Shown here is a 193-nucleotide RNA sequence, a member of the family "manA RNA". The family's consensus secondary structure is taken from published work. It is annotated as a cis-regulatory element. Rfam describes the family as follows. manA RNA has been located in 5'UTR regions of genes of mannose or fructose metabolism. Has been proposed as a cis-regulatory element and as a riboswitch candidate for his complex secondary structure.

RNA sequence: AGUUGAUCACUCAACAUGGGAGUGACUGAAUAAACUUACUGGCAUUUUGCUAGUUAAGGUGAUGAGACAGAGGUGGUGCUCGCUGUUGGGAACAACAGAACUACAAACCAAGUAGGUCUCAUGCAAAGACGUAUUUCUAAACUGUAGAAAUGCCCGUCUUUUGUAGGUACACAGGAAUCCUACCUCCCACCUC
Numbered sequence: 001a002g003u004u005g006a007u008c009a010c011u012c013a014a015c016a017u018g019g020g021a022g023u024g025a026c027u028g029a030a031u032a033a034a035c036u037u038a039c040u041g042g043c044a045u046u047u048u049g050c051u052a053g054u055u056a057a058g059g060u061g062a063u064g065a066g067a068c069a070g071a072g073g074u075g076g077u078g079c080u081c082g083c084u085g086u087u088g089g090g091a092a093c094a095a096c097a098g099a100a101c102u103a104c105a106a107a108c109c110a111a112g113u114a115g116g117u118c119u120c121a122u123g124c125a126a127a128g129a130c131g132u133a134u135u136u137c138u139a140a141a142c143u144g145u146a147g148a149a150a151u152g153c154c155c156g157u158c159u160u161u162u163g164u165a166g167g168u169a170c171a172c173a174g175g176a177a178u179c180c181u182a183c184c185u186c187c188c189a190c191c192u193c
Stems, first nucleotide, its partner, number of pairs: 002015005018188005025060002038054006063121006070081003074110004083098006101115004125161007134150004142174004163183005